[Rfam]
RNA sequence: AUCAGCCCUUUGAGGGCCAUAGAAGGAGCGUUCACGUCGCGGUCCCUGUCAGGUAUUUGUUUACCUGCGAAUCCUUCU
Numbered sequence: 001a002u003c004a005g006c007c008c009u010u011u012g013a014g015g016g017c018c019a020u021a022g023a024a025g026g027a028g029c030g031u032u033c034a035c036g037u038c039g040c041g042g043u044c045c046c047u048g049u050c051a052g053g054u055a056u057u058u059g060u061u062u063a064c065c066u067g068c069g070a071a072u073c074c075u076u077c078u
Stems, first nucleotide, its partner, number of pairs: 014045005021078007028040003050067006
RNA: Mammalian CPEB3 ribozyme